A member of the RNA family "Eukaryotic large subunit ribosomal RNA" from Chloropicon primus, 488 nucleotides of a longer RNA.
RNA sequence: CCCCCCGAAGUUUCCCUCAGGAUAGCUGGAGCUUUUUAGUUUUAUCGGGUAAAGCGAAUGAUUAGAGGCCUCGGGGAUGUAACAUCCUCGACCUAUUCUCAAACUUUAAAUAGGUAAGAGUCGCGGUUGCCUAAUCGAACCGUGGCGUUAAAUACAAGCUCCAAGUGGGCCAUUUUUGGUAAGCAGAACUGGCGAGGCGGGAUGAACCGAAAGCUAAGUUACGGUGCCAAACUUCACGCUAACCUAGAUCCCACAAAGGGUGUUGAUUCAUAUAGACAGCAGGACGGUGGCCAUGGAAGUCGGAAUCCGCUAAGGAAUGUGUAACAACUCACCUGCCGAAUGAAUUAGCCCCGAAAAUGGAUGGCGCUCAAGCGUGAGACCUAUACUUAGCCAUCGAAGCGAGUGCGAUGCUUCGAUGAGUAGGGGGGCGUGUUGCUCGUGACGCAGCCUGGGGCGUGAGCCUGGGUGAAACGUGCAAUAGUGCAGAU
Numbered sequence: 001c002c003c004c005c006c007g008a009a010g011u012u013u014c015c016c017u018c019a020g021g022a023u024a025g026c027u028g029g030a031g032c033u034u035u036u037u038a039g040u041u042u043u044a045u046c047g048g049g050u051a052a053a054g055c056g057a058a059u060g061a062u063u064a065g066a067g068g069c070c071u072c073g074g075g076g077a078u079g080u081a082a083c084a085u086c087c088u089c090g091a092c093c094u095a096u097u098c099u100c101a102a103a104c105u106u107u108a109a110a111u112a113g114g115u116a117a118g119a120g121u122c123g124c125g126g127u128u129g130c131c132u133a134a135u136c137g138a139a140c141c142g143u144g145g146c147g148u149u150a151a152a153u154a155c156a157a158g159c160u161c162c163a164a165g166u167g168g169g170c171c172a173u174u175u176u177u178g179g180u181a182a183g184c185a186g187a188a189c190u191g192g193c194g195a196g197g198c199g200g201g202a203u204g205a206a207c208c209g210a211a212a213g214c215u216a217a218g219u220u221a222c223g224g225u226g227c228c229a230a231a232c233u234u235c236a237c238g239c240u241a242a243c244c245u246a247g248a249u250c251c252c253a254c255a256a257a258g259g260g261u262g263u264u265g266a267u268u269c270a271u272a273u274a275g276a277c278a279g280c281a282g283g284a285c286g287g288u289g290g291c292c293a294u295g296g297a298a299g300u301c302g303g304a305a306u307c308c309g310c311u312a313a314g315g316a317a318u319g320u321g322u323a324a325c326a327a328c329u330c331a332c333c334u335g336c337c338g339a340a341u342g343a344a345u346u347a348g349c350c351c352c353g354a355a356a357a358u359g360g361a362u363g364g365c366g367c368u369c370a371a372g373c374g375u376g377a378g379a380c381c382u383a384u385a386c387u388u389a390g391c392c393a394u395c396g397a398a399g400c401g402a403g404u405g406c407g408a409u410g411c412u413u414c415g416a417u418g419a420g421u422a423g424g425g426g427g428g429c430g431u432g433u434u435g436c437u438c439g440u441g442a443c444g445c446a447g448c449c450u451g452g453g454g455c456g457u458g459a460g461c462c463u464g465g466g467u468g469a470a471a472c473g474u475g476c477a478a479u480a481g482u483g484c485a486g487a488u
Base pairs, nucleotide, nucleotide: 001428002427003426004425005424006423011024013022014021015020027163028162029161030160031159032158033157040119041118042117043116044115045114046113052107053105054104059101060100061099064096066094067093068092071091072090073089074088075087076086078084120146121145122144123143124142125141126140127139128138169193170192171191172190174188175187176186177185178184198209199208200207213391214390215389216388217387219385223381224380225379232378234377237374238373239372258352259351260350262349263348264347265346266345267344268343269342270341271340279336280335281334282333283332285309286308287307291303292302310314315330319328320327392418393417394416395415396414397413398412399411400410429483431480432479433478434477435476436475438473439472440471447467448466453462454461455460
Pairs were carried over by alignment from the consensus structure, which is taken from published work.